[Rfam]
RNA sequence: AUGGUGUGCUCAGAGCAGGUGGCCUGAAGAAUGGCUUCUCUUUUUAUAACACACCCAACAGGAGUUUAGGGUCACUGUGACAAGGGGCACAACACUUGUGCCUUUCCUUUGAGCAAACGUCCCACACCU
Numbered sequence: 001a002u003g004g005u006g007u008g009c010u011c012a013g014a015g016c017a018g019g020u021g022g023c024c025u026g027a028a029g030a031a032u033g034g035c036u037u038c039u040c041u042u043u044u045u046a047u048a049a050c051a052c053a054c055c056c057a058a059c060a061g062g063a064g065u066u067u068a069g070g071g072u073c074a075c076u077g078u079g080a081c082a083a084g085g086g087g088c089a090c091a092a093c094a095c096u097u098g099u100g101c102c103u104u105u106c107c108u109u110u111g112a113g114c115a116a117a118c119g120u121c122c123c124a125c126a127c128c129u
Stems, first nucleotide, its partner, number of pairs: 003055006013045003017041003021037001022035003069122004076115003081111002084104003088100005

Shown here is a 129-nucleotide sequence from Octodon degus, a member of the family "Small nucleolar RNA SNORA11".
It is annotated as an H/ACA-box small nucleolar RNA.
Rfam's curators write: U107 (SNORA11) is a member of the H/ACA class of snoRNAs that guide the sites of modification of uridines to pseudouridines. This snoRNA was identified by RT-PCR from blood cells and its expression confirmed by Northern blot analysis. There is no predicted target for this guide snRNA.